[Rfam]
Small Cajal body specific RNA 8: a 132-nucleotide RNA from Alligator mississippiensis. The organism belongs to Alligator, within Eukaryota. From the family's description: scaRNAs are a specific class of small nuclear RNAs which localise to the Cajal bodies and guide the modification of RNA polymerase II transcribed spliceosomal RNAs U1, U2, U4, U5 and U12. U92 belong to the H/ACA box class of guide RNAs as it has the predicted hairpin-hinge-hairpin-tail structure, conserved H/ACA-box motifs and is found associated with GAR1. Gene Ontology terms of the family: nucleolus, Cajal body and RNA processing. A search with the family's covariance model found it, with a score of 126 bits.
RNA sequence: UGGGAGGCUGGUACACAAAUAGAGCUAAAAGCUUGCUCUGGUUGUCACAAGCUCUCCCUAUAGUAAAACUGCCUUCUGAUGACUGGGACGAAUUAAGGAAAAUUGUAACAGACAGGUACGGGGCAGACAACA
Numbered sequence: 001u002g003g004g005a006g007g008c009u010g011g012u013a014c015a016c017a018a019a020u021a022g023a024g025c026u027a028a029a030a031g032c033u034u035g036c037u038c039u040g041g042u043u044g045u046c047a048c049a050a051g052c053u054c055u056c057c058c059u060a061u062a063g064u065a066a067a068a069c070u071g072c073c074u075u076c077u078g079a080u081g082a083c084u085g086g087g088a089c090g091a092a093u094u095a096a097g098g099a100a101a102a103u104u105g106u107a108a109c110a111g112a113c114a115g116g117u118a119c120g121g122g123g124c125a126g127a128c129a130a131c132a
Base pairs, nucleotide, nucleotide: 002058003057004056005055006054007053015045016044017043018042022038023037024036025035069126070125071124072123073122074121075120083111084110085109088106089105090104091103